[Rfam]
RNA: Small nucleolar RNA SNORA81
RNA sequence: ACCUUCUUGAUCAAGCACUGUGCUAAAACUACAGAAGCUGGGGCUUAGUCUUGGCUUCUGUAGUAAUGCUAGCAGGGUACACACAAGAAGAACAACAAAUGCACUGGAUCCAAAAUGACUUGGGUGGACCUCUUUCUUAAUGUCCCGUGUCCUUGUCUUAAGAUCUGGUGCAAUAAUU
Numbered sequence: 001a002c003c004u005u006c007u008u009g010a011u012c013a014a015g016c017a018c019u020g021u022g023c024u025a026a027a028a029c030u031a032c033a034g035a036a037g038c039u040g041g042g043g044c045u046u047a048g049u050c051u052u053g054g055c056u057u058c059u060g061u062a063g064u065a066a067u068g069c070u071a072g073c074a075g076g077g078u079a080c081a082c083a084c085a086a087g088a089a090g091a092a093c094a095a096c097a098a099a100u101g102c103a104c105u106g107g108a109u110c111c112a113a114a115a116u117g118a119c120u121u122g123g124g125u126g127g128a129c130c131u132c133u134u135u136c137u138u139a140a141u142g143u144c145c146c147g148u149g150u151c152c153u154u155g156u157c158u159u160a161a162g163a164u165c166u167g168g169u170g171c172a173a174u175a176a177u178u
Base pairs, nucleotide, nucleotide: 018077019076021074022073023072024071025070028067030065031064034058035057037055038054039053040052041051042050043049044048100172101171102170103169104168105167106166107165108164123148126145127144128143